[Rfam]
RNA sequence: AUACUAACCUGGCAGGGGAGAUACUAUGAUCACGAAAGUGGUUUUCCUAAGGCGAGGAUUAUCCAUUGCACUCUGGAUUGCACUCUGGAUUGCACCCUGCGAUUUUCCCAAAUGUGGGAAACUCAAUUGCAUAACUUGUGGUAGUAGGGAAUUGUGUUUGCGCUUCCCCCCU
Numbered sequence: 001a002u003a004c005u006a007a008c009c010u011g012g013c014a015g016g017g018g019a020g021a022u023a024c025u026a027u028g029a030u031c032a033c034g035a036a037a038g039u040g041g042u043u044u045u046c047c048u049a050a051g052g053c054g055a056g057g058a059u060u061a062u063c064c065a066u067u068g069c070a071c072u073c074u075g076g077a078u079u080g081c082a083c084u085c086u087g088g089a090u091u092g093c094a095c096c097c098u099g100c101g102a103u104u105u106u107c108c109c110a111a112a113u114g115u116g117g118g119a120a121a122c123u124c125a126a127u128u129g130c131a132u133a134a135c136u137u138g139u140g141g142u143a144g145u146a147g148g149g150a151a152u153u154g155u156g157u158u159u160g161c162g163c164u165u166c167c168c169c170c171c172u
Stems, first nucleotide, its partner, number of pairs: 012130004016048006023042005049098001051096002056084002060080002063076002101124002103121003107117002147170003154163003
RNA: U1 spliceosomal RNA